[Rfam]
RNA: SAM riboswitch aptamer (S box leader)
RNA sequence: AUCUUAUUAAGAGCGGUGGAGGGAAUAGGCCCUGUGAAACCCGGCAACCAGCAGAUCAAUGUAUGGUGCUAAGUCCUACAGCAUAAGCUGAGAAAUAAGAC
Numbered sequence: 001a002u003c004u005u006a007u008u009a010a011g012a013g014c015g016g017u018g019g020a021g022g023g024a025a026u027a028g029g030c031c032c033u034g035u036g037a038a039a040c041c042c043g044g045c046a047a048c049c050a051g052c053a054g055a056u057c058a059a060u061g062u063a064u065g066g067u068g069c070u071a072a073g074u075c076c077u078a079c080a081g082c083a084u085a086a087g088c089u090g091a092g093a094a095a096u097a098a099g100a101c
Stems, first nucleotide, its partner, number of pairs: 002100007013042001015041003021032003026078004043070004048066002051062003074093001079090004